[Rfam]
RNA sequence: UUUUUCAGGGAAGACCUGGUCUUCCCACAAGGGAAGGCCAGGGAACUUUCUU
Numbered sequence: 001u002u003u004u005u006c007a008g009g010g011a012a013g014a015c016c017u018g019g020u021c022u023u024c025c026c027a028c029a030a031g032g033g034a035a036g037g038c039c040a041g042g043g044a045a046c047u048u049u050c051u052u
Base pairs, nucleotide, nucleotide: 008052009051010050011049012048013047015042016041017040018039019038020037021036022035023034024033025032
Shown here is a 52-nucleotide RNA from Lentivirus humimdef1, a member of the family "HIV Ribosomal frameshift signal".
This family represents the HIV Ribosomal frameshift signal. HIV uses a system called -1 ribosomal frameshifting to produce the required ratio of Gag and Gag-Pol polyproteins. The stem-loop structure of the frameshift signal is thought to impede the ribosome and cause slippage in the 5' direction, this causes the -1 frameshift and translation then continues in the new frame.
The family's consensus secondary structure is taken from published work.
Rfam links the family to the GO term viral translational frameshifting.
Rfam's curators put it in the seed alignment.